[Rfam]
RNA sequence: UGCAUCGGUCCGAUGUUAAUGGGUUAUCAAUUCUUCACUGUCUCUUCUGCUUGCAGAAGAAACCCCGGUUCUCUUGUGGAACGAAAAAACGUUGUCUGUCAGAAUUUCGUUCUGCCAAACAACACUCGCAUCCGUGCGAAACCCCCCUUCCCAUCAACACAACCUUGACCGUUGU
Number, nucleotide and partner (000 for none) at each position: 001u000002g175003c174004a173005u000006c171007g170008g169009u168010c167011c000012g000013a000014u000015g158016u157017u156018a000019a154020u153021g152022g151023g150024u000025u000026a000027u000028c000029a000030a000031u000032u000033c000034u000035u000036c000037a000038c000039u000040g000041u000042c000043u060044c059045u058046u057047c056048u055049g054050c000051u000052u000053g000054c049055a048056g047057a046058a045059g044060a043061a000062a000063c000064c000065c000066c000067g000068g000069u081070u080071c079072u078073c000074u000075u000076g000077u000078g072079g071080a070081a069082c000083g000084a000085a000086a000087a000088a000089a000090c000091g000092u000093u000094g000095u000096c000097u000098g000099u000100c000101a000102g000103a000104a000105u000106u000107u000108c000109g000110u000111u000112c000113u000114g000115c000116c000117a000118a000119a000120c000121a000122a000123c000124a000125c000126u000127c000128g000129c000130a000131u000132c000133c000134g000135u000136g000137c000138g000139a000140a000141a000142c000143c000144c000145c000146c000147c000148u000149u000150c023151c022152c021153a020154u019155c000156a017157a016158c015159a000160c000161a000162a000163c000164c000165u000166u000167g010168a009169c008170c007171g006172u000173u004174g003175u002
The record is a 175-nucleotide RNA from Caenorhabditis remanei, which matches "Nematode sRNA ceN72-3_ceN74-2" in Rfam.
The family has 13 seed sequences and 521 matches in Rfam 15.1.